[Rfam]
RNA sequence: AGGCUGCAGUGGAGACAACAUGAUCAGGCAGGUGGUUUUCGCAGGGCAAGGCUCAUCCCCUACACUAGGGGUGUGCUGACCCCUGUGAUUUCCGCAAAUGCAGGAAACUCAACUGCAUAAUUUGUGGUAGUGGGGGCUGUGUUUGCGCUCUCCCCU
Dot-bracket structure: .....((((..((((.(.(((..........))).)))))..((((...(((.(((((..........))))).)))...)))).((((((.(.........))).).))).))))...............(((((..(((....)))..))))).
This 156-nucleotide RNA from Anser cygnoides belongs to the Rfam family "U1 spliceosomal RNA". NCBI's taxonomy places the organism under Eukaryota, Sarcopterygii, Amniota, Archosauria, Anser. Rfam 15.1 lists 40,184 matches to the family in 1,499 species. Rfam links the family to the GO terms pre-mRNA 5'-splice site binding, mRNA 5'-splice site recognition and U1 snRNP.